A member of the RNA family "Bacterial RNase P class A" from Peptococcaceae bacterium SCADC1_2_3, 377 nucleotides long. NCBI's taxonomy places the organism under Bacteria, Bacillati, Bacillota, Eubacteriales, Peptococcaceae. Rfam classes the family as a ribozyme.
RNA sequence: UGAGUAAACUGGGUGAUCGCGGGUGUGAUUUUUUAAAGAUUACACUUGAGGAAAGUCCGAGCUCCACAGGGCAGGGUGCUGGGUAACACCCAGUGGGGGCAACCCUAAGGAAAGUGCCACAGAAAUGAAGACCGCCGUUUUGGUCAUCAGUUAACAACUGACGACCAAAACGGUAAGGGUGCAACGGUGCGGUAAGAGCGUACCAGCGGCCGGGUGACCGGCCGGCUAGGUAAACCCCACCUGGAGCAAGACCAAAUAGGGGAAUAACAAGUGGCCCGCUUUAAUUCCCGGGUAAGGUCGCUUGAGGCGGCAGGUAACUGUCGUCCUAGAUAGAUGAUCAUCCUUGACAGAACUCGGCUUACAGGUUUACUCACUUU
Numbered sequence: 001u002g003a004g005u006a007a008a009c010u011g012g013g014u015g016a017u018c019g020c021g022g023g024u025g026u027g028a029u030u031u032u033u034u035a036a037a038g039a040u041u042a043c044a045c046u047u048g049a050g051g052a053a054a055g056u057c058c059g060a061g062c063u064c065c066a067c068a069g070g071g072c073a074g075g076g077u078g079c080u081g082g083g084u085a086a087c088a089c090c091c092a093g094u095g096g097g098g099g100c101a102a103c104c105c106u107a108a109g110g111a112a113a114g115u116g117c118c119a120c121a122g123a124a125a126u127g128a129a130g131a132c133c134g135c136c137g138u139u140u141u142g143g144u145c146a147u148c149a150g151u152u153a154a155c156a157a158c159u160g161a162c163g164a165c166c167a168a169a170a171c172g173g174u175a176a177g178g179g180u181g182c183a184a185c186g187g188u189g190c191g192g193u194a195a196g197a198g199c200g201u202a203c204c205a206g207c208g209g210c211c212g213g214g215u216g217a218c219c220g221g222c223c224g225g226c227u228a229g230g231u232a233a234a235c236c237c238c239a240c241c242u243g244g245a246g247c248a249a250g251a252c253c254a255a256a257u258a259g260g261g262g263a264a265u266a267a268c269a270a271g272u273g274g275c276c277c278g279c280u281u282u283a284a285u286u287c288c289c290g291g292g293u294a295a296g297g298u299c300g301c302u303u304g305a306g307g308c309g310g311c312a313g314g315u316a317a318c319u320g321u322c323g324u325c326c327u328a329g330a331u332a333g334a335u336g337a338u339c340a341u342c343c344u345u346g347a348c349a350g351a352a353c354u355c356g357g358c359u360u361a362c363a364g365g366u367u368u369a370c371u372c373a374c375u376u377u
Base pairs, nucleotide, nucleotide: 001373002372003371004370005369006368007367008366009365010364011362012342013341014340015339016338017337018336020048021047022046023045024044025043026042027041028040029039030038053360054359055358057357058356059355060354061353062246063245064244065243069277070276071275072274074242075241076240077239078238079093080092081091082090083089094108095106096105097104098103109237110236114235115234116231117230118229132178133177134174135173136172137171138170139169140168141167142166143165144164145163186204187203188202189201190200191199206226207224208223209222210221211220212219213218250299251298252297253296260289261288262287263286264285265284269281270280271279272278306325307324308323309322310321311320312319313318